NiCo (Nickel/Cobalt) riboswitch aptamer: a 107-nucleotide sequence from Ruminococcus sp. 5_1_39BFAA. The organism belongs to Ruminococcus, within Bacteria. Clan: NiCo_riboswitches. On this family, see Furukawa et al., Mol Cell 2015: "Bacterial riboswitches cooperatively bind Ni(2+) or Co(2+) ions and control expression of heavy metal transporters".

[Rfam]
RNA sequence: ACAGUACAAACUGAGCAGGCGAUGCCCGAGAUGCUUGAGGGCGUGGGGCCGGGCCGCGCGAAGCGGCAGCAGAUAUGAAAAUUUUCAGACAUAUCUGUGGGACAGUG
Numbered sequence: 001a002c003a004g005u006a007c008a009a010a011c012u013g014a015g016c017a018g019g020c021g022a023u024g025c026c027c028g029a030g031a032u033g034c035u036u037g038a039g040g041g042c043g044u045g046g047g048g049c050c051g052g053g054c055c056g057c058g059c060g061a062a063g064c065g066g067c068a069g070c071a072g073a074u075a076u077g078a079a080a081a082u083u084u085u086c087a088g089a090c091a092u093a094u095c096u097g098u099g100g101g102a103c104a105g106u107g
Stems, first nucleotide, its partner, number of pairs: 010106004016101001018050003022044006053067005069098009